[Rfam]
Streptomyces sRNA scr5239: a 160-nucleotide RNA from Streptomyces sp. W1SF4. Taxonomically the source falls in Streptomyces (Bacteria, Actinomycetota, Kitasatosporales, Streptomycetaceae). The family's RNA type in Rfam is small RNA. For this family Rfam cites "Identification of metE as a second target of the sRNA scr5239 in Streptomyces coelicolor" (Vockenhuber et al., PLoS One, 2015). Gene Ontology terms of the family: negative regulation of translation and mRNA binding.
RNA sequence: CUUCCGCCCUCCCCGCACAGGAGGACGGAUCGAGGUGGCCGCGCGUUCUGCCCUGACCGCGCGGGUUCACCUCCCCAACGGCCGCCGGGCACCGCACACCCUACGGCCGUGAGUACUCCGGGCUACGGUGCCGGGUGGGUUGAGGGUCCCGCCCUGCACC
Numbered sequence: 001c002u003u004c005c006g007c008c009c010u011c012c013c014c015g016c017a018c019a020g021g022a023g024g025a026c027g028g029a030u031c032g033a034g035g036u037g038g039c040c041g042c043g044c045g046u047u048c049u050g051c052c053c054u055g056a057c058c059g060c061g062c063g064g065g066u067u068c069a070c071c072u073c074c075c076c077a078a079c080g081g082c083c084g085c086c087g088g089g090c091a092c093c094g095c096a097c098a099c100c101c102u103a104c105g106g107c108c109g110u111g112a113g114u115a116c117u118c119c120g121g122g123c124u125a126c127g128g129u130g131c132c133g134g135g136u137g138g139g140u141u142g143a144g145g146g147u148c149c150c151g152c153c154c155u156g157c158a159c160c
Stems, first nucleotide, its partner, number of pairs: 003029004008024005032073005038067001039064003043060002046055001078110007088101002114130004120124001133154007